The family of this 65-nucleotide RNA sequence from Sphaerisporangium krabiense is "L31-Actinobacteria ribosomal protein leader". It is annotated as a cis-regulatory leader. The literature on the family includes a 2020 paper in BMC Microbiol by Eckert and Weinberg, "Discovery of 20 novel ribosomal leader candidates in bacteria and archaea".

RNA sequence: GCGGUUCCGGUUCCCGCCCGUCCGCGCGUCACCCCGACGUGAGCGACCAAGGCGACCCGGCGGCC
Numbered sequence: 001g002c003g004g005u006u007c008c009g010g011u012u013c014c015c016g017c018c019c020g021u022c023c024g025c026g027c028g029u030c031a032c033c034c035c036g037a038c039g040u041g042a043g044c045g046a047c048c049a050a051g052g053c054g055a056c057c058c059g060g061c062g063g064c065c
Stems, first nucleotide, its partner, number of pairs: 003065003007060004015054004020047002